Rfam assigns this 124-nucleotide RNA sequence from Halobacillus yeomjeoni to the family "ylbH leader".
The source organism's lineage runs through Bacteria, Bacilli, Caryophanales, Bacillaceae and Halobacillus.
[Rfam]
RNA sequence: AAAAAAAAUAGGGCCGUCCGAAUGGACAGCCCUUCUUUUUUACACUCUAUCCGAGGGUGUAAAAAAGUAAAGGGAGAGGAGAAACCGGAGGAAGUACUUAUGGGGAUGUAAGCCUUCUCCGUUU
Numbered sequence: 001a002a003a004a005a006a007a008a009u010a011g012g013g014c015c016g017u018c019c020g021a022a023u024g025g026a027c028a029g030c031c032c033u034u035c036u037u038u039u040u041u042a043c044a045c046u047c048u049a050u051c052c053g054a055g056g057g058u059g060u061a062a063a064a065a066a067g068u069a070a071a072g073g074g075a076g077a078g079g080a081g082a083a084a085c086c087g088g089a090g091g092a093a094g095u096a097c098u099u100a101u102g103g104g105g106a107u108g109u110a111a112g113c114c115u116u117c118u119c120c121g122u123u124u
Stems, first nucleotide, its partner, number of pairs: 011032004016027004033074005042060006086121004091117004097112004